[Rfam]
RNA sequence: CAGUUGGGAGAGCCGCAGAGCGGUUCGCCGGACAAUGUCCGCCUGGCUG
Numbered sequence: 001c002a003g004u005u006g007g008g009a010g011a012g013c014c015g016c017a018g019a020g021c022g023g024u025u026c027g028c029c030g031g032a033c034a035a036u037g038u039c040c041g042c043c044u045g046g047c048u049g
Stems, first nucleotide, its partner, number of pairs: 001049008010026006029041004
RNA: DUF3800-VI RNA